The record is a 125-nucleotide sequence from Gossypium hirsutum, which matches "MIR7504 microRNA precursor family" in Rfam. Rfam 15.1 lists 7,343 matches to the family in 61 species. The family's consensus secondary structure was predicted with RNAalifold. The source organism's lineage runs through Eukaryota, Viridiplantae, Magnoliopsida, Gunneridae and Gossypium. Its family is annotated with miRNA-mediated post-transcriptional gene silencing and RISC complex in the Gene Ontology.

[Rfam]
RNA sequence: AAUAGGAGAAUGACAAAUUACAUUUUUCUUCUUGAUUUUUAGCUUUUUUUCUCCUAAAAAACAUUCAAAUCCAAUUGAAAAUGCUAAAAAUUAGAAGGAAAAAUAUGAUUUGUCAUUCUUUUAUU
Numbered sequence: 001a002a003u004a005g006g007a008g009a010a011u012g013a014c015a016a017a018u019u020a021c022a023u024u025u026u027u028c029u030u031c032u033u034g035a036u037u038u039u040u041a042g043c044u045u046u047u048u049u050u051c052u053c054c055u056a057a058a059a060a061a062c063a064u065u066c067a068a069a070u071c072c073a074a075u076u077g078a079a080a081a082u083g084c085u086a087a088a089a090a091u092u093a094g095a096a097g098g099a100a101a102a103a104u105a106u107g108a109u110u111u112g113u114c115a116u117u118c119u120u121u122u123a124u125u
Base pairs, nucleotide, nucleotide: 001125002124003123004122005121006120007119008118009117010116011115012114013113014112015111016110017109018108019107020106022104023103024102025101026100027099029097030096032094033093034092035091036090037089038088039087041085042084045081046080047079048078